Overview:
The family of this 45-nucleotide sequence from Taibaiella sp. is "Acido-Lenti-1 RNA". Taxonomically the source falls in Taibaiella (Bacteria, Bacteroidota, Chitinophagia, Chitinophagales).

RNA sequence: CGAUGGGCGAUGCCCAUCGCUGAUAUAUUCCGCCCUUUCAGGGCU
Numbered sequence: 001c002g003a004u005g006g007g008c009g010a011u012g013c014c015c016a017u018c019g020c021u022g023a024u025a026u027a028u029u030c031c032g033c034c035c036u037u038u039c040a041g042g043g044c045u
Stems, first nucleotide, its partner, number of pairs: 001019008032044005